[Rfam]
RNA: tRNA
Organism: Exilibacterium tricleocarpae
RNA sequence: GCCAGAGUGGUGAAAUUGGUAGACACGACGGAUUCAAAAUCCGUUGCCUUAACGGGCGUGUCGGUUCGAGUCCGACCUCUGGUA
Dot-bracket structure: (((((((..(((...........))).(((((.......)))))...............(((((.......)))))))))))).